[Rfam]
Rfam assigns this 263-nucleotide sequence from Lachnospiraceae bacterium C7 to the family "Bacterial large signal recognition particle RNA".
The family's consensus secondary structure is taken from published work.
The signal recognition particle (SRP) is a universally conserved ribonucleoprotein involved in the co-translational targeting of proteins to membranes.
Rfam classes the family as a non-coding RNA gene.
RNA sequence: CUGAGCAGCCGGGGUGUUAGCGGUACCUUGUACCAACAAUCCGCUAUAGUUGGGGUGAUGCUUCGCAGAGGGUUUUGGCCAUUUUAGCCGCCCUUCAUAAGUGAUGUUGACGUUUGGGUCUCACGCAAUAGAAAUCCAUGAACCGGGUCAGGGCAGGAAUGCAGCAGCCAUAAGUGGAACCUUUUAUGUGUCGUGAGGGUGCCUGGACCGAGUUAACUGUGAAGGUAACGGUAUUAUGACCGGAUUCGAAGCGAAGCGCUCUU
Numbered sequence: 001c002u003g004a005g006c007a008g009c010c011g012g013g014g015u016g017u018u019a020g021c022g023g024u025a026c027c028u029u030g031u032a033c034c035a036a037c038a039a040u041c042c043g044c045u046a047u048a049g050u051u052g053g054g055g056u057g058a059u060g061c062u063u064c065g066c067a068g069a070g071g072g073u074u075u076u077g078g079c080c081a082u083u084u085u086a087g088c089c090g091c092c093c094u095u096c097a098u099a100a101g102u103g104a105u106g107u108u109g110a111c112g113u114u115u116g117g118g119u120c121u122c123a124c125g126c127a128a129u130a131g132a133a134a135u136c137c138a139u140g141a142a143c144c145g146g147g148u149c150a151g152g153g154c155a156g157g158a159a160u161g162c163a164g165c166a167g168c169c170a171u172a173a174g175u176g177g178a179a180c181c182u183u184u185u186a187u188g189u190g191u192c193g194u195g196a197g198g199g200u201g202c203c204u205g206g207a208c209c210g211a212g213u214u215a216a217c218u219g220u221g222a223a224g225g226u227a228a229c230g231g232u233a234u235u236a237u238g239a240c241c242g243g244a245u246u247c248g249a250a251g252c253g254a255a256g257c258g259c260u261c262u263u
Stems, first nucleotide, its partner, number of pairs: 003261004008056003011029008033053005061256006070247005076242003080238003085233001090226001093224006101217002103214003112208008120197006126188002129186005135178005146169003153162003